[Rfam]
RNA: mir-87 microRNA precursor family
RNA sequence: UGCUGAACGGCCUGAAUCGUUGCUCAGACCUCGUAAUGAAGCAGGUGAGCAAAGUUUCAGGUGUGUUAGCGC
Numbered sequence: 001u002g003c004u005g006a007a008c009g010g011c012c013u014g015a016a017u018c019g020u021u022g023c024u025c026a027g028a029c030c031u032c033g034u035a036a037u038g039a040a041g042c043a044g045g046u047g048a049g050c051a052a053a054g055u056u057u058c059a060g061g062u063g064u065g066u067u068a069g070c071g072c
Stems, first nucleotide, its partner, number of pairs: 002070005010062006018054001020052002023049004029045003